[Rfam]
RNA sequence: GGCGUAUUUUGACCAGGCGAAGCGCGACCGCCAUUGGAAGAAAUAAUGCGGCUGCUUGAUAACUUGAGUGGCGAAUAGGGGUUCGGGCCAGUAUGCCGCGAAUUGGAUAUUGCCCC
Numbered sequence: 001g002g003c004g005u006a007u008u009u010u011g012a013c014c015a016g017g018c019g020a021a022g023c024g025c026g027a028c029c030g031c032c033a034u035u036g037g038a039a040g041a042a043a044u045a046a047u048g049c050g051g052c053u054g055c056u057u058g059a060u061a062a063c064u065u066g067a068g069u070g071g072c073g074a075a076u077a078g079g080g081g082u083u084c085g086g087g088c089c090a091g092u093a094u095g096c097c098g099c100g101a102a103u104u105g106g107a108u109a110u111u112g113c114c115c116c
Stems, first nucleotide, its partner, number of pairs: 016032004079116003089112002092109003096105001098103001

The family of this 116-nucleotide RNA from Serratia symbiotica is "ALIL pseudoknot". Rfam links the family to the GO term positive regulation of translational frameshifting. The base pairs follow the family's consensus structure, which is taken from published work. On this family, see Mazauric et al., J Biol Chem 2008: "Apical loop-internal loop RNA pseudoknots: a new type of stimulator of -1 translational frameshifting in bacteria". Lineage of the source: Bacteria > Pseudomonadati > Pseudomonadota > Yersiniaceae > Serratia symbiotica.